[Rfam]
A member of the RNA family "MIR319 microRNA precursor family" from Lupinus angustifolius, 81 nucleotides long. Pairs were carried over by alignment from the consensus structure, which was predicted with RNAalifold. Rfam 15.1 lists 168 matches to the family in 79 species.

RNA sequence: CAGAAAUAGGAGUUCCUUGCAGCCCAAAACAUGUAGUAAAAAAUUCAUGCUGUUUUGGACUGAAGGGAGCUCCUAGUUCUU
Numbered sequence: 001c002a003g004a005a006a007u008a009g010g011a012g013u014u015c016c017u018u019g020c021a022g023c024c025c026a027a028a029a030c031a032u033g034u035a036g037u038a039a040a041a042a043a044u045u046c047a048u049g050c051u052g053u054u055u056u057g058g059a060c061u062g063a064a065g066g067g068a069g070c071u072c073c074u075a076g077u078u079c080u081u
Base pairs, nucleotide, nucleotide: 007075008074009073010072011071012070013069014068015067016066017065018064021061022060024058025057026056027055028054